RNA: Small nucleolar RNA SNORD20
RNA sequence: UGGAUGUGAUGACUAAUUCUCUGAGAAGUGCUGAUGAAAUCUCUAGAAAAUUCCUCUAGAUAGUCAAGUUCUGAUCCAG
Numbered sequence: 001u002g003g004a005u006g007u008g009a010u011g012a013c014u015a016a017u018u019c020u021c022u023g024a025g026a027a028g029u030g031c032u033g034a035u036g037a038a039a040u041c042u043c044u045a046g047a048a049a050a051u052u053c054c055u056c057u058a059g060a061u062a063g064u065c066a067a068g069u070u071c072u073g074a075u076c077c078a079g
Base pairs, nucleotide, nucleotide: 001078002077003076004075